[Rfam]
RNA sequence: AACCCCCUGAUCCCUGUAGAAAACUUUGGCCGGUCUACUCAGGAAUCAGGGGGUGCAAACUGCCCACUGGCAGAAAGGAUUAUAGCAAAUGCGUAACCUAUUGCAAUACAGCCCGGCCAAUAUG
Numbered sequence: 001a002a003c004c005c006c007c008u009g010a011u012c013c014c015u016g017u018a019g020a021a022a023a024c025u026u027u028g029g030c031c032g033g034u035c036u037a038c039u040c041a042g043g044a045a046u047c048a049g050g051g052g053g054u055g056c057a058a059a060c061u062g063c064c065c066a067c068u069g070g071c072a073g074a075a076a077g078g079a080u081u082a083u084a085g086c087a088a089a090u091g092c093g094u095a096a097c098c099u100a101u102u103g104c105a106a107u108a109c110a111g112c113c114c115g116g117c118c119a120a121u122a123u124g
Stems, first nucleotide, its partner, number of pairs: 002054010013043004018039002022036001026120008
Dot-bracket structure: .((((((((((.((((.((..(...[[[[[[[[..).)))))).))))))))))..........................................................]]]]]]]]....
RNA: Pseudoknot of the regulatory region of the repBA gene
Organism: Erwinia amylovora